About this RNA
Rfam assigns this 111-nucleotide RNA sequence from Paenirhizobium daejeonense to the family "EcpR1". Perviously named SmelC291, SmrC10, or Sra33. According to its overproduction phenotype it was renamed Elongated Cell Phenotype RNA1. Induced by stress,EcpR1 negatively regulates cell cycle master regulatory genes dnaA and gcrA at post-transcriptional level by base pairing between its strongly conserved GC-rich loop and the target mRNAs. It's regulation is hfq-independent but requires RNase E to regulate dnaA. A search with the family's covariance model found it, with a score of 98 bits. The organism belongs to Paenirhizobium, within Bacteria. On this family, see Wilms et al., RNA Biol 2012: "Deep sequencing uncovers numerous small RNAs on all four replicons of the plant pathogen Agrobacterium tumefaciens".
RNA sequence: AUACCCCAUGAUGCUCAGGUCCGCCGCAUCUCCUGGGUCGUGGGGUCGGUCGGUUGACAUGCAAUAUUUAGCGGUUCCUCGUGCCGUCUUUGCAUGUUGACCGGCCCCCGA
Dot-bracket structure: ..((((((((...((((((............)))))).)))))))).(((((((((((.....................................))))))))))).....
Numbered sequence: 001a002u003a004c005c006c007c008a009u010g011a012u013g014c015u016c017a018g019g020u021c022c023g024c025c026g027c028a029u030c031u032c033c034u035g036g037g038u039c040g041u042g043g044g045g046u047c048g049g050u051c052g053g054u055u056g057a058c059a060u061g062c063a064a065u066a067u068u069u070a071g072c073g074g075u076u077c078c079u080c081g082u083g084c085c086g087u088c089u090u091u092g093c094a095u096g097u098u099g100a101c102c103g104g105c106c107c108c109c110g111a
Stems, first nucleotide, its partner, number of pairs: 003046008014037006048106011